[Rfam]
RNA sequence: GGUCACGAGAUCCAGUUCCAAGCCCCGGCUCGCUGACGGCAACCCUCCAUCGCGGCGGGGUGCUCCGGGUGAUGACAUGGCGGCCGCCGACCGGUGGUCGCAAGCGCGAGGC
Numbered sequence: 001g002g003u004c005a006c007g008a009g010a011u012c013c014a015g016u017u018c019c020a021a022g023c024c025c026c027g028g029c030u031c032g033c034u035g036a037c038g039g040c041a042a043c044c045c046u047c048c049a050u051c052g053c054g055g056c057g058g059g060g061u062g063c064u065c066c067g068g069g070u071g072a073u074g075a076c077a078u079g080g081c082g083g084c085c086g087c088c089g090a091c092c093g094g095u096g097g098u099c100g101c102a103a104g105c106g107c108g109a110g111g112c
Stems, first nucleotide, its partner, number of pairs: 002076003009037001011036001013035004021030002038064003043060003047055002080101009

Rfam assigns this 112-nucleotide sequence from Terrabacter sp. MAHUQ-38 to the family "SAM (S-adenosyl methionine) riboswitch aptamer". SAM-IV is a mRNA element that regulates gene expression via direct sensing of S-adenosylmethionine (SAM or AdoMet). Its family is annotated with regulation of gene expression and S-adenosylmethionine metabolic process in the Gene Ontology. Lineage of the source: Bacteria > Bacillati > Actinomycetes > Intrasporangiaceae > Terrabacter.